The family of this 106-nucleotide RNA from Piscinibacter aquaticus is "Glycine riboswitch aptamer".

[Rfam]
RNA sequence: UGACGGCCGCCAGGAGAGAGCUUCACUCGCGAAGCCGCCGAAGGCGCAGAACCGCAUCCCUCGGGAGCCGGUUCGAACGCUCAGGCAAAAGGACUGGCAAGCGCCG
Numbered sequence: 001u002g003a004c005g006g007c008c009g010c011c012a013g014g015a016g017a018g019a020g021c022u023u024c025a026c027u028c029g030c031g032a033a034g035c036c037g038c039c040g041a042a043g044g045c046g047c048a049g050a051a052c053c054g055c056a057u058c059c060c061u062c063g064g065g066a067g068c069c070g071g072u073u074c075g076a077a078c079g080c081u082c083a084g085g086c087a088a089a090a091g092g093a094c095u096g097g098c099a100a101g102c103g104c105c106g
Stems, first nucleotide, its partner, number of pairs: 009098005020035004037086003040082002044080003051073001
Dot-bracket structure: ........(((((......((((........)))).(((((..(((....(.....................)....))))).))).......)))))........